RNA sequence: CCGUCGGACACGACCGUCCGCGCGGACACUGACACCGGUACCUCAUACGGCCGGUGCAG
Number, nucleotide and partner (000 for none) at each position: 001c025002c024003g023004u022005c020006g019007g018008a017009c000010a000011c000012g000013a000014c000015c000016g000017u008018c007019c006020g005021c000022g004023c003024g002025g001026a000027c000028a000029c059030u058031g057032a000033c056034a055035c054036c053037g052038g051039u050040a000041c000042c000043u000044c000045a000046u000047a000048c000049g000050g039051c038052c037053g036054g035055u034056g033057c031058a030059g029
A member of the RNA family "L17-Actino-Proteobacteria ribosomal protein leader" from Streptomyces sp. QHH-9511, 59 nucleotides long. It is annotated as a cis-regulatory leader. Pairs were carried over by alignment from the consensus structure, which is taken from published work. A search with the family's covariance model found it, with a score of 62 bits.